[Rfam]
RNA sequence: UCUAGAACUCAAGAUAUGAGCUGAACAAUGAACAGUGUCUGGGCUGCAGAAUAGAUUCGGACUUCUCCGUUGUUGCUAUAAUUUGGACUUGAAAACAACUUUUUUAAAUCUUGGACUCCACAUCAAAGUUUUAGGCCUAUUUCUUAUCUUUCCAUU
Number, nucleotide and partner (000 for none) at each position: 001u000002c000003u154004a000005g152006a151007a150008c000009u146010c000011a145012a144013g143014a142015u000016a140017u139018g138019a000020g136021c134022u133023g132024a131025a130026c000027a129028a000029u127030g000031a000032a000033c000034a000035g123036u122037g121038u000039c000040u000041g119042g118043g117044c000045u115046g000047c000048a112049g111050a000051a109052u108053a000054g105055a104056u000057u000058c000059g100060g099061a000062c000063u097064u000065c000066u000067c000068c000069g000070u000071u000072g088073u087074u086075g000076c000077u000078a000079u000080a000081a000082u000083u000084u000085g000086g074087a073088c072089u000090u000091g000092a000093a000094a000095a000096c000097a063098a000099c060100u059101u000102u000103u000104u055105u054106a000107a000108a052109u051110c000111u049112u048113g000114g000115a045116c000117u043118c042119c041120a000121c037122a036123u035124c000125a000126a000127a029128g000129u027130u025131u024132u023133a022134g021135g000136c020137c000138u018139a017140u016141u000142u014143c013144u012145u011146a009147u000148c000149u000150u007151u006152c005153c000154a003155u000156u000
RNA: MIR2912 microRNA precursor family
Organism: Populus alba